The family of this 70-nucleotide RNA from Alligator mississippiensis is "Mammalian CPEB3 ribozyme". It scores 40 bits against the family's covariance model. The organism belongs to Alligator, within Eukaryota.
[Rfam]
RNA sequence: UGCAAGUUCGAGGGCACACAGCAGCAGUGCUCACGGCUUGUCAGAUUCCAGUGAAUCUGCAAAUUCUGCU
Numbered sequence: 001u002g003c004a005a006g007u008u009c010g011a012g013g014g015c016a017c018a019c020a021g022c023a024g025c026a027g028u029g030c031u032c033a034c035g036g037c038u039u040g041u042c043a044g045a046u047u048c049c050a051g052u053g054a055a056u057c058u059g060c061a062a063a064u065u066c067u068g069c070u
Stems, first nucleotide, its partner, number of pairs: 011038002015036001017035001020070005026064001027034002042059007